[Rfam]
Nucleotides: 363
Base pairs, nucleotide, nucleotide: 001359002358003357004356005355006354007353008352009351010350011348012327013326014325015324016323017322018321020045021044023042024041025040026039027038050346051345052344054343055342056341057340058339059233060232061231062230066264067263068262069261071229072228073227074226075225076090077089078088079087080086091105092103093102094101095100106224107223111222112221113218114217129163130162131159132158133157135155136154137153139151171189172188173187174186175185176184190213191211192210193209194208195207196205197204198203237284238283239282240281246275247274248273249272250271251270258266259265291310292309293308294307295306296305297304298303
Number, partner (000 for none) and nucleotide at each position: 001359c002358a003357g004356g005355u006354a007353a008352a009351a010350c011348a012327g013326a014325c015324a016323g017322u018321c019000g020045c021044c022000g023042c024041g025040u026039a027038u028000c029000g030000c031000g032000u033000a034000a035000g036000g037000c038027a039026u040025a041024c042023g043000g044021g045020g046000a047000g048000g049000a050346a051345a052344g053000u054343c055342c056341g057340g058339g059233c060232u061231a062230c063000a064000c065000a066264g067263a068262g069261c070000a071229g072228a073227a074226u075225g076090c077089c078088a079087g080086c081000u082000a083000a084000c085000g086080g087079c088078u089077g090076g091105g092103c093102g094101u095100g096000g097000u098000a099000a100095c101094a102093c103092g104000a105091c106224g107223g108000a109000a110000a111222g112221u113218g114217g115000a116000a117000c118000a119000g120000a121000a122000a123000g124000c125000a126000a127000a128000a129163c130162c131159g132158c133157c134000g135155a136154u137153g138000a139151u140000u141000g142000c143000a144000u145000u146000a147000u148000u149000g150000c151139a152000a153137c154136a155135u156000a157133g158132g159131u160000a161000a162130g163129g164000g165000u166000g167000a168000a169000a170000a171189g172188g173187u174186g175185c176184g177000g178000u179000a180000a181000g182000a183000g184176c185175g186174c187173a188172c189171c190213g191211c192210g193209c194208a195207a196205c197204u198203g199000g200000c201000a202000a203198c204197a205196g206000c207195u208194u209193g210192u211191g212000g213190c214000a215000g216000g217114c218113u219000a220000a221112a222111c223107c224106c225075c226074a227073u228072u229071c230062g231061u232060a233059g234000c235000a236000a237284g238283a239282c240281c241000a242000a243000a244000c245000a246275g247274a248273a249272c250271a251270c252000a253000u254000u255000g256000a257000c258266g259265c260000u261069g262068c263067u264066c265259g266258c267000c268000g269000a270251g271250u272249g273248u274247u275246u276000g277000g278000g279000u280000a281240g282239g283238u284237u285000g286000c287000u288000u289000g290000a291310a292309c293308g294307u295306g296305c297304u298303g299000g300000c301000a302000a303298c304297g305296g306295u307294a308293c309292g310291u311000c312000u313000a314000g315000a316000u317000g318000a319000a320000u321018g322017a323016c324015u325014g326013u327012c328000c329000a330000a331000c332000g333000a334000c335000a336000g337000a338000a339058c340057c341056c342055g343054g344052c345051u346050u347000a348011u349000c350010g351009u352008u353007u354006u355005a356004c357003c358002u359001g360000u361000c362000u363000c
Bacterial RNase P class A: a 363-nucleotide sequence from Kingella kingae. Rfam classes the family as a ribozyme. The match comes from Rfam's covariance-model search (315 bits). Pairs were carried over by alignment from the consensus structure, which is taken from published work. The organism belongs to Kingella kingae, within Bacteria. Rfam links the family to the GO terms ribonuclease P activity, dimeric ribonuclease P complex and tRNA processing.